[Rfam]
RNA sequence: CCGUCCGGCCCUUGGGACGCCAUGUCCAGCCGACACCCGCACGGUUACGCUGGCCCCGUGCACCCUCCUCCGAUGGUGCAAAGCCGACAGCCGUCGCAUCCCAGGGAGCUCAUCCAUG
Numbered sequence: 001c002c003g004u005c006c007g008g009c010c011c012u013u014g015g016g017a018c019g020c021c022a023u024g025u026c027c028a029g030c031c032g033a034c035a036c037c038c039g040c041a042c043g044g045u046u047a048c049g050c051u052g053g054c055c056c057c058g059u060g061c062a063c064c065c066u067c068c069u070c071c072g073a074u075g076g077u078g079c080a081a082a083g084c085c086g087a088c089a090g091c092c093g094u095c096g097c098a099u100c101c102c103a104g105g106g107a108g109c110u111c112a113u114c115c116a117u118g
Stems, first nucleotide, its partner, number of pairs: 059080004064075001066073002083097002086095003
The record is a 118-nucleotide sequence from Streptomyces sp. QHH-9511, which matches "Streptomyces-metH RNA" in Rfam.
It is annotated as a small RNA.
A search with the family's covariance model found it, with a score of 104 bits.
The family's consensus secondary structure is taken from published work.